Rfam assigns this 93-nucleotide RNA sequence from Tropicimonas sediminicola to the family "Rhodo-rpoB RNA". NCBI's taxonomy places the organism under Bacteria, Pseudomonadati, Rhodobacterales, Roseobacteraceae, Tropicimonas. It scores 69 bits against the family's covariance model.
RNA sequence: GGUUCGGGAGUUGCCGGUGGGACGGCAGCGGGAAUGGAACCUGGCCCCCUUCAUUCGUGAGCGGCACGCGGCCGAACCCCGACGGCCUGCGUG
Numbered sequence: 001g002g003u004u005c006g007g008g009a010g011u012u013g014c015c016g017g018u019g020g021g022a023c024g025g026c027a028g029c030g031g032g033a034a035u036g037g038a039a040c041c042u043g044g045c046c047c048c049c050u051u052c053a054u055u056c057g058u059g060a061g062c063g064g065c066a067c068g069c070g071g072c073c074g075a076a077c078c079c080c081g082a083c084g085g086c087c088u089g090c091g092u093g
Stems, first nucleotide, its partner, number of pairs: 001041005010029007065093005070087005